[Rfam]
RNA sequence: UAACUUUAAUUUAAAUAACACACAUAUAUCGACACAUUCUCCGGGGUGCCAAAUCAUUGAAAAAUGAAGCGGUCGGAUUGGAAUGGGAUAUAUGGAGGCCUAAC
Numbered sequence: 001u002a003a004c005u006u007u008a009a010u011u012u013a014a015a016u017a018a019c020a021c022a023c024a025u026a027u028a029u030c031g032a033c034a035c036a037u038u039c040u041c042c043g044g045g046g047u048g049c050c051a052a053a054u055c056a057u058u059g060a061a062a063a064a065u066g067a068a069g070c071g072g073u074c075g076g077a078u079u080g081g082a083a084u085g086g087g088a089u090a091u092a093u094g095g096a097g098g099c100c101u102a103a104c
Base pairs, nucleotide, nucleotide: 023094024093025092026091027090028089029088030087035085036084037083038082039081040077041076042075043074048073049072050071